[Rfam]
RNA sequence: CUGCACUGAUGAGCUGAGAUGUGACUGACCUGGUAUUGCCACCCUCCGGGGAAGGCUCUGACCAGGACAUGACUUCAGUUAAUCUUCUCUCUGAGCAG
Numbered sequence: 001c002u003g004c005a006c007u008g009a010u011g012a013g014c015u016g017a018g019a020u021g022u023g024a025c026u027g028a029c030c031u032g033g034u035a036u037u038g039c040c041a042c043c044c045u046c047c048g049g050g051g052a053a054g055g056c057u058c059u060g061a062c063c064a065g066g067a068c069a070u071g072a073c074u075u076c077a078g079u080u081a082a083u084c085u086u087c088u089c090u091c092u093g094a095g096c097a098g
Base pairs, nucleotide, nucleotide: 003096004095038056039055040054
Z30 small nucleolar RNA: a 98-nucleotide RNA from Oncorhynchus kisutch. A search with the family's covariance model found it, with a score of 78 bits. Gene Ontology terms of the family: RNA processing and nucleolus. NCBI's taxonomy places the organism under Eukaryota, Deuterostomia, Chordata, Euteleosteomorpha, Oncorhynchus. The family's RNA type in Rfam is C/D-box small nucleolar RNA.